[Rfam]
RNA sequence: AGCGAGACUAGAGUCACAUCCUGAUAUUCCUGGUUGUCCUGGUGUGCUAGAGUCCUCGCAGAUUAACGUUUCUCUGCUUAUUCAUUGGCUGCUGCUUUCCAUUGCUCAGCCAAUCACCAGCUUUGAAACAUCU
Numbered sequence: 001a002g003c004g005a006g007a008c009u010a011g012a013g014u015c016a017c018a019u020c021c022u023g024a025u026a027u028u029c030c031u032g033g034u035u036g037u038c039c040u041g042g043u044g045u046g047c048u049a050g051a052g053u054c055c056u057c058g059c060a061g062a063u064u065a066a067c068g069u070u071u072c073u074c075u076g077c078u079u080a081u082u083c084a085u086u087g088g089c090u091g092c093u094g095c096u097u098u099c100c101a102u103u104g105c106u107c108a109g110c111c112a113a114u115c116a117c118c119a120g121c122u123u124u125g126a127a128a129c130a131u132c133u
Base pairs, nucleotide, nucleotide: 002059003058004057005056006055007053008052009051012048013047015046016045017044018043019042020041023038024037025036026035072125076121077120078119084114085113086112087111088110090108091107

Small nucleolar RNA SNORA3/SNORA45 family: a 133-nucleotide RNA from Astyanax mexicanus.
The family's consensus secondary structure was predicted with RNAalifold.
The members of this family belong to the H/ACA class of snoRNAs which are thought to guide the sites of modification of uridines to pseudouridines. This family includes mouse snoMBI-28 and human homologues ACA3 (SNORA3) and ACA3-2 (SNORA45). Both ACA3 and ACA3-2 share the same host gene.
Lineage of the source: Eukaryota > Metazoa > Characiphysae > Characiformes > Astyanax.
Rfam links the family to the GO terms nucleolus and RNA processing.
Its Rfam clan is "SNORA3 clan".
It is annotated as an H/ACA-box small nucleolar RNA.
The match comes from Rfam's covariance-model search (81 bits).
Rfam 15.1 lists 2,080 matches to the family in 639 species.